[Rfam]
RNA sequence: ACUCCUUGGUGGGAUCAGACCUACACUGGUUUUCGCUUCGGUGAUAUUGCAAGGAUGAUUAUCACCGGGUGAAAAUCAAAGCAGGUCCGAUCCUGCCAC
Number, nucleotide and partner (000 for none) at each position: 001a000002c000003u000004c000005c000006u000007u000008g000009g000010u000011g000012g000013g000014a000015u000016c089017a000018g087019a086020c085021c084022u083023a000024c081025a000026c000027u078028g077029g076030u075031u074032u073033u072034c071035g070036c069037u068038u000039c067040g000041g065042u064043g063044a062045u061046a060047u000048u000049g000050c000051a000052a000053g000054g000055a000056u000057g000058a000059u000060u046061a045062u044063c043064a042065c041066c000067g039068g037069g036070u035071g034072a033073a032074a031075a030076u029077c028078a027079a000080a000081g024082c000083a022084g021085g020086u019087c018088c000089g016090a000091u000092c000093c000094u000095g000096c000097c000098a000099c000
About this RNA: A member of the RNA family "mir-36 microRNA precursor family" from Caenorhabditis latens, 99 nucleotides long. Rfam 15.1 lists 199 matches to the family in 31 species. The family is grouped with related families in Rfam's "mir-36 clan". Its family is annotated with miRNA-mediated post-transcriptional gene silencing and RISC complex in the Gene Ontology.